Rfam assigns this 84-nucleotide sequence from Ensete ventricosum to the family "Small nucleolar RNA SNORD34". Pairs were carried over by alignment from the consensus structure, which was predicted with PFOLD. It is annotated as a C/D-box small nucleolar RNA. On this family, see Galardi et al., Mol Cell Biol 2002: "Purified box C/D snoRNPs are able to reproduce site-specific 2'-O-methylation of target RNA in vitro". The source organism's lineage runs through Eukaryota, Embryophyta, Mesangiospermae, Liliopsida and Ensete. Its family is annotated with RNA processing and nucleolus in the Gene Ontology. The family has 14 seed sequences and 1,319 matches in Rfam 15.1. About the family: snoRNA U34 is found in intron 5 of the ribosomal protein L13a gene in humans. The family is grouped with related families in Rfam's "SNORD34 clan".
RNA sequence: AAGGCCUAUGAUUGUCAACUAAUAUAUUGCCUACAUUGCCUGAUUAGCAUUAUGAUUAUAAUCUAAUGUUGUUCUGAGGCCUUU
Numbered sequence: 001a002a003g004g005c006c007u008a009u010g011a012u013u014g015u016c017a018a019c020u021a022a023u024a025u026a027u028u029g030c031c032u033a034c035a036u037u038g039c040c041u042g043a044u045u046a047g048c049a050u051u052a053u054g055a056u057u058a059u060a061a062u063c064u065a066a067u068g069u070u071g072u073u074c075u076g077a078g079g080c081c082u083u084u
Base pairs, nucleotide, nucleotide: 001083003081004080005079006078